The family of this 433-nucleotide part of an RNA from Haloplasma contractile is "Bacterial large subunit ribosomal RNA". The family's consensus secondary structure is taken from published work. Rfam's curators put it in the seed alignment.
RNA sequence: CUCCCCGAAAUAGCUUUAGGGCUAGCCUCGUGAAAGAGUGUACCGGAGGUAGAGCACUGAAUGUGUGAUGGUCCCACCUCGGGAUACUGAGCAUAAUCAAACUCCGAAUGCCGGUAAUACAAACACGGGAGUCAGACUAUGGGUGAUAAGGUCCAUGGUCGAGAGGGAAAGAGCCCAGACCGCCAGCUAAGGUCCCUAAAUGUACGUUAAGUGGGAAAGGAUGUGGAGAUGCACAGACAACUAGGAGGUUGGCUUAGAAGCAGCCAUCCUUUAAAGAGUGCGUAAUAGCUCACUAGUCGAGUGACUCUGCGCCGAAAAUGUACCGGGGCUAAACGUACUACCGAAGCUGCGGAUUCAAAUGAAUGGUAGGGGAGCGUUCUAACAUCGGAGAAGGUAGACCGGAAGGACUACUGGAGAGGUUAGAAGUGAGAAU
Numbered sequence: 001c002u003c004c005c006c007g008a009a010a011u012a013g014c015u016u017u018a019g020g021g022c023u024a025g026c027c028u029c030g031u032g033a034a035a036g037a038g039u040g041u042a043c044c045g046g047a048g049g050u051a052g053a054g055c056a057c058u059g060a061a062u063g064u065g066u067g068a069u070g071g072u073c074c075c076a077c078c079u080c081g082g083g084a085u086a087c088u089g090a091g092c093a094u095a096a097u098c099a100a101a102c103u104c105c106g107a108a109u110g111c112c113g114g115u116a117a118u119a120c121a122a123a124c125a126c127g128g129g130a131g132u133c134a135g136a137c138u139a140u141g142g143g144u145g146a147u148a149a150g151g152u153c154c155a156u157g158g159u160c161g162a163g164a165g166g167g168a169a170a171g172a173g174c175c176c177a178g179a180c181c182g183c184c185a186g187c188u189a190a191g192g193u194c195c196c197u198a199a200a201u202g203u204a205c206g207u208u209a210a211g212u213g214g215g216a217a218a219g220g221a222u223g224u225g226g227a228g229a230u231g232c233a234c235a236g237a238c239a240a241c242u243a244g245g246a247g248g249u250u251g252g253c254u255u256a257g258a259a260g261c262a263g264c265c266a267u268c269c270u271u272u273a274a275a276g277a278g279u280g281c282g283u284a285a286u287a288g289c290u291c292a293c294u295a296g297u298c299g300a301g302u303g304a305c306u307c308u309g310c311g312c313c314g315a316a317a318a319u320g321u322a323c324c325g326g327g328g329c330u331a332a333a334c335g336u337a338c339u340a341c342c343g344a345a346g347c348u349g350c351g352g353a354u355u356c357a358a359a360u361g362a363a364u365g366g367u368a369g370g371g372g373a374g375c376g377u378u379c380u381a382a383c384a385u386c387g388g389a390g391a392a393g394g395u396a397g398a399c400c401g402g403a404a405g406g407a408c409u410a411c412u413g414g415a416g417a418g419g420u421u422a423g424a425a426g427u428g429a430g431a432a433u
Stems, first nucleotide, its partner, number of pairs: 001374006011024005026131001027129006041116006052105001053103002058099003062095004070087001071085005135160010165176003180352004185348003191342003200339001202338006219313002223310006230303003240297005246270003251265003271275001276291001280289002353364004375428001377425007385417002393412005399406002
NCBI's taxonomy places the organism under Bacteria, Mollicutes, Haloplasmataceae, Haloplasma, Haloplasma contractile.